This 76-nucleotide RNA sequence from Schistosoma haematobium belongs to the Rfam family "mir-3492 microRNA precursor family". It scores 65 bits against the family's covariance model. Rfam links the family to the GO terms RISC complex and miRNA-mediated post-transcriptional gene silencing. NCBI's taxonomy places the organism under Eukaryota, Neodermata, Trematoda, Strigeidida, Schistosoma. Pairs were carried over by alignment from the consensus structure, which was predicted with RNAalifold.
RNA sequence: AGCCUUUUGUAUCCGUGCUGAGAUUUCGUCACAUCAGACCACAAGAGCUGGUGAGACCUCCCAGAUAAGUGAAGCA
Numbered sequence: 001a002g003c004c005u006u007u008u009g010u011a012u013c014c015g016u017g018c019u020g021a022g023a024u025u026u027c028g029u030c031a032c033a034u035c036a037g038a039c040c041a042c043a044a045g046a047g048c049u050g051g052u053g054a055g056a057c058c059u060c061c062c063a064g065a066u067a068a069g070u071g072a073a074g075c076a
Stems, first nucleotide, its partner, number of pairs: 002075002005072002008069001010067004017060001020059001022057001024056007